[Rfam]
RNA sequence: GUUGGGGACAGCCUCCUGUGAUGACUCCUCUCUCUGAUGGCUGUGGUGGUGAUGAUCAUCAAACAAAAGCCUCUAAGAAGUUGUCUGAAGAGGCCGUCCCUCC
Numbered sequence: 001g002u003u004g005g006g007g008a009c010a011g012c013c014u015c016c017u018g019u020g021a022u023g024a025c026u027c028c029u030c031u032c033u034c035u036g037a038u039g040g041c042u043g044u045g046g047u048g049g050u051g052a053u054g055a056u057c058a059u060c061a062a063a064c065a066a067a068a069g070c071c072u073c074u075a076a077g078a079a080g081u082u083g084u085c086u087g088a089a090g091a092g093g094c095c096g097u098c099c100c101u102c103c
Stems, first nucleotide, its partner, number of pairs: 007098003011094005
Description: This 103-nucleotide sequence from Trogon melanurus belongs to the Rfam family "Small nucleolar RNA SNORD125". Gene Ontology terms of the family: nucleolus and RNA processing. The family has 16 seed sequences and 526 matches in Rfam 15.1. Clan: SNORD61 clan. The match comes from Rfam's covariance-model search (65 bits). The literature on the family includes a 2006 paper in Nucleic Acids Res by Yang et al., "snoSeeker: an advanced computational package for screening of guide and orphan snoRNA genes in the human genome".